[Rfam]
RNA: Acido-Lenti-1 RNA
RNA sequence: CCCGGCAAUGAAUUGCCGGGCUAUUAUCGUUCGCCCCUUCGGGGCU
Number, nucleotide and partner (000 for none) at each position: 001c020002c019003c018004g017005g016006c015007a014008a013009u000010g000011a000012a000013u008014u007015g006016c005017c004018g003019g002020g001021c000022u000023a000024u000025u000026a000027u000028c000029g000030u000031u000032c000033g045034c044035c043036c042037c041038u000039u000040c000041g037042g036043g035044g034045c033046u000